[Rfam]
RNA: MIR860 microRNA precursor family
RNA sequence: UGGUCAAAUUCAAUAUAUAUAGUCCAAUCUAUUGAAGUACUAGUACACCAGCUCUAAUAAGCUGAUGUAGGUAAGUAGUUCAAUAGAUUGGACUAUAUAUAUUAAAUUUGACUAA
Numbered sequence: 001u002g003g004u005c006a007a008a009u010u011c012a013a014u015a016u017a018u019a020u021a022g023u024c025c026a027a028u029c030u031a032u033u034g035a036a037g038u039a040c041u042a043g044u045a046c047a048c049c050a051g052c053u054c055u056a057a058u059a060a061g062c063u064g065a066u067g068u069a070g071g072u073a074a075g076u077a078g079u080u081c082a083a084u085a086g087a088u089u090g091g092a093c094u095a096u097a098u099a100u101a102u103u104a105a106a107u108u109u110g111a112c113u114a115a
Base pairs, nucleotide, nucleotide: 001114002113003112004111005110006109007108008107009106010105012103013102014101015100016099017098018097019096020095021094022093023092024091025090026089027088028087029086030085031084032083033082034081035080036079038077039076040075041074044069045068046067047066049064050063051062052061053060